[Rfam]
RNA sequence: GGAGAGAUGGCCGAGCGGUUCAAGGCGUAGCAUUGGAACUGCUAUGUAGACUUUUGUUUACCGAGGGUUCGAAUCCCUCUCUUUCCG
Numbered sequence: 001g002g003a004g005a006g007a008u009g010g011c012c013g014a015g016c017g018g019u020u021c022a023a024g025g026c027g028u029a030g031c032a033u034u035g036g037a038a039c040u041g042c043u044a045u046g047u048a049g050a051c052u053u054u055u056g057u058u059u060a061c062c063g064a065g066g067g068u069u070c071g072a073a074u075c076c077c078u079c080u081c082u083u084u085c086c087g
Base pairs, nucleotide, nucleotide: 001086002085003084004083005082006081007080010026011025012024028044029043030042031041032040063079064078065077066076067075